Shown here is a 150-nucleotide RNA sequence from Pseudomonas sp. SDI, a member of the family "PrrF RNA". The family has 18 seed sequences and 107 matches in Rfam 15.1. A search with the family's covariance model found it, with a score of 168 bits. Its family is annotated with sRNA-mediated gene silencing in the Gene Ontology. Taxonomically the source falls in Pseudomonas (Bacteria, Gammaproteobacteria, Pseudomonadales, Pseudomonadaceae).
RNA sequence: UUGACUUGAAAAUGAGAACGGUUAUUAUUUCUCGCAACUGGUCGCGAGACUGGUUGGGUAACCUGAAAGCCCUUAGGUCGGACUCUCAGAUUAUCUCCUCAUCAGGCUAAUCACGGUUUUUGACCCGGCUUUUUGCCGGGUCUUUUUUUU
Numbered sequence: 001u002u003g004a005c006u007u008g009a010a011a012a013u014g015a016g017a018a019c020g021g022u023u024a025u026u027a028u029u030u031c032u033c034g035c036a037a038c039u040g041g042u043c044g045c046g047a048g049a050c051u052g053g054u055u056g057g058g059u060a061a062c063c064u065g066a067a068a069g070c071c072c073u074u075a076g077g078u079c080g081g082a083c084u085c086u087c088a089g090a091u092u093a094u095c096u097c098c099u100c101a102u103c104a105g106g107c108u109a110a111u112c113a114c115g116g117u118u119u120u121u122g123a124c125c126c127g128g129c130u131u132u133u134u135g136c137c138g139g140g141u142c143u144u145u146u147u148u149u150u
Base pairs, nucleotide, nucleotide: 035056036055037054038053039052040051041050042049043048063089064088065087066086068084069083071080097106098105099104122142123141124140125139126138127137128136129135
On this family, see Wilderman et al., Proc Natl Acad Sci U S A 2004: "Identification of tandem duplicate regulatory small RNAs in Pseudomonas aeruginosa involved in iron homeostasis". Rfam's curators write: PrrF RNA is a small RNA involved in iron homeostasis and is found exclusively in Pseudomonas species. The family's RNA type in Rfam is small RNA.